[Rfam]
Nucleotides: 057
Stems, first nucleotide, its partner, number of pairs: 003039003007036002010033008
Number, partner (000 for none) and nucleotide at each position: 001000g002000c003039c004038c005037c006000a007036g008035a009000a010033c011032c012031g013030u014029g015028a016027g017026a018000a019000a020000a021000c022000g023000g024000c025000c026017u027016c028015u029014u030013a031012c032011g033010g034000a035008u036007c037005g038004g039003g040000u041000a042000a043000u044000u045000u046000c047000a048000u049000g050000u051000a052000a053000a054000g055000g056000a057000g